[Rfam]
RNA: MIR403 microRNA precursor family
RNA sequence: GCAUAUUUCACGUUUGUGCGUGAAUCUGACAACCCUUUUGUGUCUCUAUUUUUUAUGAUUGGGUGUGGUGUGUUAGAUUCACGCACAAACUCGUAAUAUGUCU
Numbered sequence: 001g002c003a004u005a006u007u008u009c010a011c012g013u014u015u016g017u018g019c020g021u022g023a024a025u026c027u028g029a030c031a032a033c034c035c036u037u038u039u040g041u042g043u044c045u046c047u048a049u050u051u052u053u054u055a056u057g058a059u060u061g062g063g064u065g066u067g068g069u070g071u072g073u074u075a076g077a078u079u080c081a082c083g084c085a086c087a088a089a090c091u092c093g094u095a096a097u098a099u100g101u102c103u
Base pairs, nucleotide, nucleotide: 001101002100003099005097006096007095012090013089014088015087016086017085018084019083020082021081022080023079024078025077026076028074029073030072033070044062